[Rfam]
RNA sequence: CAGCAUGUUUCCAAGGGCUGUGGCUGGUUGUAGCCAUGGGUUCUCCAGCUGCAUGGGAGAACAACCUGGAGAGACUGACCGCUUAGGUCAAAAUCAAAACUUAAGGCAGCUGCCACUCGCCUUUCCUGUAAUA
Number, nucleotide and partner (000 for none) at each position: 001c000002a000003g000004c000005a000006u000007g000008u000009u000010u000011c039012c038013a000014a000015g000016g035017g034018c033019u032020g031021u030022g029023g000024c000025u000026g000027g000028u000029u022030g021031u020032a019033g018034c017035c016036a000037u000038g012039g011040g000041u000042u000043c000044u000045c000046c000047a000048g000049c000050u000051g000052c000053a000054u000055g000056g000057g000058a000059g000060a000061a000062c000063a000064a000065c000066c000067u000068g126069g125070a124071g123072a122073g121074a000075c000076u000077g000078a000079c000080c000081g113082c112083u000084u103085a102086g101087g100088u000089c000090a000091a000092a000093a000094u000095c000096a000097a000098a000099a000100c087101u086102u085103a084104a000105g000106g000107c000108a000109g000110c000111u000112g082113c081114c000115a000116c000117u000118c000119g000120c000121c073122u072123u071124u070125c069126c068127u000128g000129u000130a000131a000132u000133a000

A member of the RNA family "Small nucleolar RNA SNORA44" from Myotis lucifugus, 133 nucleotides long. Rfam describes the family as follows. ACA44 is a member of the H/ACA class of snoRNA that guide the sites of modification of uridines to pseudouridines. Lineage of the source: Eukaryota > Metazoa > Gnathostomata > Eutheria > Myotis. The base pairs follow the family's consensus structure, which was predicted with PFOLD. Rfam links the family to the GO terms nucleolus and RNA processing. By type it is an H/ACA-box small nucleolar RNA.